[Rfam]
RNA sequence: ACACGAGAGAGGAGGUGGUCCAAAGUUGUAUACCAACGGGACACGUGAGGUGGCUGUCCGCUAAGGACCACCAUCUGGCUCCAGCCGGCCGCCGAACACGGCAGACGCUGGUCAUCCAGCGCCGUUGACGCGGGCGUUGGUCGGCGAAUCCAAAGCAGCCACCGGCUCUCGGGGUUCCUGGGAAGUUCGUCCAAUCCCAGGCCUCGUGCACAGCAC
Number, nucleotide and partner (000 for none) at each position: 001a000002c000003a000004c000005g000006a000007g000008a000009g000010a000011g000012g000013a000014g058015g057016u056017g055018g054019u053020c000021c000022a000023a000024a000025g000026u000027u000028g000029u000030a000031u000032a000033c000034c000035a000036a000037c000038g000039g000040g000041a000042c000043a000044c000045g000046u000047g000048a000049g000050g000051u000052g000053g019054c018055u017056g016057u015058c014059c146060g145061c144062u143063a000064a000065g000066g000067a141068c140069c139070a138071c000072c136073a000074u000075c000076u000077g000078g000079c000080u000081c000082c000083a000084g000085c000086c000087g000088g000089c000090c000091g000092c000093c000094g000095a000096a000097c000098a000099c000100g000101g000102c000103a000104g000105a000106c000107g000108c000109u000110g000111g000112u000113c000114a000115u000116c000117c000118a000119g000120c000121g000122c000123c000124g000125u000126u000127g000128a000129c000130g000131c000132g000133g000134g000135c000136g072137u000138u070139g069140g068141u067142c000143g062144g061145c060146g059147a000148a000149u000150c000151c000152a000153a000154a000155g000156c000157a000158g000159c000160c000161a000162c000163c213164g000165g211166c000167u000168c208169u000170c206171g205172g204173g203174g202175u201176u000177c000178c000179u193180g192181g191182g190183a000184a000185g000186u000187u000188c000189g000190u182191c181192c180193a179194a000195u000196c000197c000198c000199a000200g000201g175202c174203c173204u172205c171206g170207u000208g168209c000210a000211c165212a000213g163214c000215a000216c000
Shown here is a 216-nucleotide sequence from Kibdelosporangium phytohabitans, a member of the family "Actinobacteria sRNA Ms_IGR-5". Lineage of the source: Bacteria > Bacillati > Actinomycetes > Pseudonocardiales > Kibdelosporangium. The base pairs follow the family's consensus structure. The family's RNA type in Rfam is small RNA.